RNA sequence: AGGUGAUGUCUCCUUACCGUUAUCAAUGGAGGUACUCGGUUAUGCUGUGGGUGUAAAAGCCUUAGACGUUUUGUCGUCGUCGGUGUAAUGUGAGGGGAGGUUUGAUGCCUC
Numbered sequence: 001a002g003g004u005g006a007u008g009u010c011u012c013c014u015u016a017c018c019g020u021u022a023u024c025a026a027u028g029g030a031g032g033u034a035c036u037c038g039g040u041u042a043u044g045c046u047g048u049g050g051g052u053g054u055a056a057a058a059g060c061c062u063u064a065g066a067c068g069u070u071u072u073g074u075c076g077u078c079g080u081c082g083g084u085g086u087a088a089u090g091u092g093a094g095g096g097g098a099g100g101u102u103u104g105a106u107g108c109c110u111c
Stems, first nucleotide, its partner, number of pairs: 002018003007034007035094004039089008049062004065078004097111005
RNA: epsC RNA
Organism: Anaerobacillus alkaliphilus